Shown here is a 90-nucleotide sequence from Micromonospora yangpuensis, a member of the family "ZMP/ZTP riboswitch aptamer (pfl RNA motif)". A search with the family's covariance model found it, with a score of 55 bits. The literature on the family includes a 2015 paper in Nat Struct Mol Biol by Jones and Ferre-D'Amare, "Recognition of the bacterial alarmone ZMP through long-distance association of two RNA subdomains". NCBI's taxonomy places the organism under Bacteria, Bacillati, Actinomycetota, Micromonosporales, Micromonospora.
RNA sequence: CCGGUGGACCGUGACUGGCGCGUGAAGAUGGAGAACCAUCGGGGAGCGGUCCCGUCACACGGACGUACGCCGAGCGCCUGGGCCUUCUUC
Numbered sequence: 001c002c003g004g005u006g007g008a009c010c011g012u013g014a015c016u017g018g019c020g021c022g023u024g025a026a027g028a029u030g031g032a033g034a035a036c037c038a039u040c041g042g043g044g045a046g047c048g049g050u051c052c053c054g055u056c057a058c059a060c061g062g063a064c065g066u067a068c069g070c071c072g073a074g075c076g077c078c079u080g081g082g083c084c085u086u087c088u089u090c
Stems, first nucleotide, its partner, number of pairs: 003055001006052007015043002017078005028039004067085001069083003